[Rfam]
Annotation: Rfam assigns this 54-nucleotide RNA sequence from Acipenser ruthenus to the family "UnaL2 LINE 3' element". The match comes from Rfam's covariance-model search (57 bits). It is annotated as a cis-regulatory element. Taxonomically the source falls in Acipenser (Eukaryota, Craniata, Actinopterygii, Acipenseriformes). The eel long interspersed element (LINE) UnaL2 and its partner short interspersed element (SINE) share a conserved 3' tail containing a stem-loop that is critical for their retrotransposition. Presumably, the first step of retrotransposition is the recognition of their 3' tails by UnaL2-encoded reverse transcriptase.

RNA sequence: CCUCCUAGUCUCUGUGAGUCGCUUUGGAUAAAAGCGUCUGCUAAAUGACUAAAU
Numbered sequence: 001c002c003u004c005c006u007a008g009u010c011u012c013u014g015u016g017a018g019u020c021g022c023u024u025u026g027g028a029u030a031a032a033a034g035c036g037u038c039u040g041c042u043a044a045a046u047g048a049c050u051a052a053a054u
Stems, first nucleotide, its partner, number of pairs: 013043001014041003020036006